[Rfam]
RNA sequence: CAAAAUUCUCAGGGCGGGGUGUAAGUCCCCACCGGUGGUAUAGCCCACGAGCGCUUAAUUUAUUUUGUUAACUGUAGUAGUUAUUUUAUUGCUCGGUUAGAUUUUGAUAGAUUGGGGACAAGCAGAUUUGGUGAAAUUCCAAAGCCGACAGUAAAAGUCUGGAUAAAAGAGAGUUGCU
Numbered sequence: 001c002a003a004a005a006u007u008c009u010c011a012g013g014g015c016g017g018g019g020u021g022u023a024a025g026u027c028c029c030c031a032c033c034g035g036u037g038g039u040a041u042a043g044c045c046c047a048c049g050a051g052c053g054c055u056u057a058a059u060u061u062a063u064u065u066u067g068u069u070a071a072c073u074g075u076a077g078u079a080g081u082u083a084u085u086u087u088a089u090u091g092c093u094c095g096g097u098u099a100g101a102u103u104u105u106g107a108u109a110g111a112u113u114g115g116g117g118a119c120a121a122g123c124a125g126a127u128u129u130g131g132u133g134a135a136a137u138u139c140c141a142a143a144g145c146c147g148a149c150a151g152u153a154a155a156a157g158u159c160u161g162g163a164u165a166a167a168a169g170a171g172a173g174u175u176g177c178u
Base pairs, nucleotide, nucleotide: 004175005174006173007172008171009170010169017029018028019027031158032157033147034146035048036047037046038045043145044144051123052122127143128142129141130140131139149161150160151159

FMN riboswitch aptamer (RFN element): a 178-nucleotide RNA sequence from Gilliamella sp. Occ3-1.
The organism belongs to Gilliamella, within Bacteria.
A search with the family's covariance model found it, with a score of 106 bits.